[Rfam]
RNA sequence: GAAGGAGAAUUCCAAAGGGAUCGCAUUGAUCUCUUUAUAUAUCUAUAGUCUCCAGUGAUCAUGCGAUUCCUUUGGAAUUUUCCAU
Numbered sequence: 001g002a003a004g005g006a007g008a009a010u011u012c013c014a015a016a017g018g019g020a021u022c023g024c025a026u027u028g029a030u031c032u033c034u035u036u037a038u039a040u041a042u043c044u045a046u047a048g049u050c051u052c053c054a055g056u057g058a059u060c061a062u063g064c065g066a067u068u069c070c071u072u073u074g075g076a077a078u079u080u081u082c083c084a085u
Stems, first nucleotide, its partner, number of pairs: 002085001004083003008079014023064004028060004